[Rfam]
RNA sequence: GGGGCUGAUCGGUUUCGACUGGGGACGCUAGUCCCAGGGGAAGCGGGUCGAGGAGCCAGCGUCAUCUCGUAAACGAUCGCUGGAAACCAAUAACUGCCAACGCUAAGCGCAGUUCCUUCGCUCUCGCCGCCUGAGCGGUGAUCGAAGCGUCUCCCCGGGUAUCCGUCUCCGGCCCGGUGUGAGGCGUCGACUAGGAGACUUGCUGUUCAUCUGCUGUCAGGGCGGAUGACCGGGACUCAAACCUGACUGAGCCCGUCGGGGAGGUGUUCGUGCCAGCCCCGGGGCCGAGAAAACGACAUCACGGACUGCACCCGGAGAAGACCUGGUUCGGCGCUCGAGGACGCGGGUUCGAUUCCCGCCAGCUCCACCA
Numbered sequence: 001g002g003g004g005c006u007g008a009u010c011g012g013u014u015u016c017g018a019c020u021g022g023g024g025a026c027g028c029u030a031g032u033c034c035c036a037g038g039g040g041a042a043g044c045g046g047g048u049c050g051a052g053g054a055g056c057c058a059g060c061g062u063c064a065u066c067u068c069g070u071a072a073a074c075g076a077u078c079g080c081u082g083g084a085a086a087c088c089a090a091u092a093a094c095u096g097c098c099a100a101c102g103c104u105a106a107g108c109g110c111a112g113u114u115c116c117u118u119c120g121c122u123c124u125c126g127c128c129g130c131c132u133g134a135g136c137g138g139u140g141a142u143c144g145a146a147g148c149g150u151c152u153c154c155c156c157g158g159g160u161a162u163c164c165g166u167c168u169c170c171g172g173c174c175c176g177g178u179g180u181g182a183g184g185c186g187u188c189g190a191c192u193a194g195g196a197g198a199c200u201u202g203c204u205g206u207u208c209a210u211c212u213g214c215u216g217u218c219a220g221g222g223c224g225g226a227u228g229a230c231c232g233g234g235a236c237u238c239a240a241a242c243c244u245g246a247c248u249g250a251g252c253c254c255g256u257c258g259g260g261g262a263g264g265u266g267u268u269c270g271u272g273c274c275a276g277c278c279c280c281g282g283g284g285c286c287g288a289g290a291a292a293a294c295g296a297c298a299u300c301a302c303g304g305a306c307u308g309c310a311c312c313c314g315g316a317g318a319a320g321a322c323c324u325g326g327u328u329c330g331g332c333g334c335u336c337g338a339g340g341a342c343g344c345g346g347g348u349u350c351g352a353u354u355c356c357c358g359c360c361a362g363c364u365c366c367a368c369c370a
Stems, first nucleotide, its partner, number of pairs: 001366007019339002022336003028330001031329001034326005044314005049069005056083006124141007148186006155177004162172001165199006203233003207229005216247005251285004258278002263274002266306004270300001343359005
RNA: transfer-messenger RNA
Organism: Nocardioides acrostichi